[Rfam]
RNA sequence: AGUGUGUCCGGAUGAAGUCUCCAUCGACCGGGACUUAAUAUUAGGUCGGUGGGACUUUCGUCCGUUUGCAAA
Numbered sequence: 001a002g003u004g005u006g007u008c009c010g011g012a013u014g015a016a017g018u019c020u021c022c023a024u025c026g027a028c029c030g031g032g033a034c035u036u037a038a039u040a041u042u043a044g045g046u047c048g049g050u051g052g053g054a055c056u057u058u059c060g061u062c063c064g065u066u067u068g069c070a071a072a
Stems, first nucleotide, its partner, number of pairs: 003070004009064007016056005022051002025048005
Shown here is a 72-nucleotide RNA from Eufriesea mexicana, a member of the family "mir-278 microRNA precursor family". Lineage of the source: Eukaryota > Insecta > Eumetabola > Euglossini > Eufriesea. Pairs were carried over by alignment from the consensus structure, which was predicted with RNAalifold.